[Rfam]
RNA sequence: AGCCUGCAACUACUAAUAGCUUCGUGGUCGCUUCUUCCAAAGCGGCAGGAGUGUCUUGCGUUGCGUUUUGCGACGGGGGCAUAUCUGCGGAGUUACAUUUGUUGCUAGAAUAAGCGUGAAUCAUAGUACACCGAGGGUCCACAUCUUCGUGUUGCUGUUCGCAGCAAUAUUCGGAUAACCCUCUCGGUGUCUCCAUUGAGCACAAACAUUUU
Numbered sequence: 001a002g003c004c005u006g007c008a009a010c011u012a013c014u015a016a017u018a019g020c021u022u023c024g025u026g027g028u029c030g031c032u033u034c035u036u037c038c039a040a041a042g043c044g045g046c047a048g049g050a051g052u053g054u055c056u057u058g059c060g061u062u063g064c065g066u067u068u069u070g071c072g073a074c075g076g077g078g079g080c081a082u083a084u085c086u087g088c089g090g091a092g093u094u095a096c097a098u099u100u101g102u103u104g105c106u107a108g109a110a111u112a113a114g115c116g117u118g119a120a121u122c123a124u125a126g127u128a129c130a131c132c133g134a135g136g137g138u139c140c141a142c143a144u145c146u147u148c149g150u151g152u153u154g155c156u157g158u159u160c161g162c163a164g165c166a167a168u169a170u171u172c173g174g175a176u177a178a179c180c181c182u183c184u185c186g187g188u189g190u191c192u193c194c195a196u197u198g199a200g201c202a203c204a205a206a207c208a209u210u211u212u
Stems, first nucleotide, its partner, number of pairs: 006105005019093007048086003054079004061073005116203002128190010143176004149170001152164004
small nucleolar RNA snR94: a 212-nucleotide RNA sequence from Schizosaccharomyces japonicus. Its family is annotated with RNA processing and nucleolus in the Gene Ontology. By type it is an H/ACA-box small nucleolar RNA. The literature on the family includes a 2005 paper in J Biol Chem by Li et al., "Identification and functional analysis of 20 Box H/ACA small nucleolar RNAs (snoRNAs) from Schizosaccharomyces pombe". Lineage of the source: Eukaryota > Opisthokonta > Ascomycota > Schizosaccharomycetales > Schizosaccharomyces japonicus.